[Rfam]
RNA: Pyrrolysine insertion sequence mttB
Organism: Pararhodobacter aggregans
RNA sequence: AUCUCGGACAGCAAGCUGCCGGACAUGCAGGCGGGCUGGGAGCAGGGGAUCACCAACGUCCUGGCCGGGCUCGCCGGGCUGAACCUGUGCUACGAGGCGG
Numbered sequence: 001a002u003c004u005c006g007g008a009c010a011g012c013a014a015g016c017u018g019c020c021g022g023a024c025a026u027g028c029a030g031g032c033g034g035g036c037u038g039g040g041a042g043c044a045g046g047g048g049a050u051c052a053c054c055a056a057c058g059u060c061c062u063g064g065c066c067g068g069g070c071u072c073g074c075c076g077g078g079c080u081g082a083a084c085c086u087g088u089g090c091u092a093c094g095a096g097g098c099g100g
Stems, first nucleotide, its partner, number of pairs: 033062003077098001079096002